[Rfam]
Nucleotides: 081
Base pairs, nucleotide, nucleotide: 002080003079004078005077
Number, partner (000 for none) and nucleotide at each position: 001000c002080g003079g004078c005077c006000u007000c008000a009000u010000a011000g012000g013000a014000u015000g016000a017000a018000a019000g020000a021000u022000g023000u024000u025000u026000u027000c028000a029000u030000g031000u032000c033000u034000c035000u036000u037000c038000u039000c040000u041000g042000a043000g044000u045000g046000u047000a048000g049000c050000u051000c052000u053000g054000g055000a056000g057000a058000a059000a060000c061000u062000u063000a064000c065000a066000u067000g068000u069000u070000c071000u072000g073000a074000u075000c076000a077005g078004g079003c080002c081000c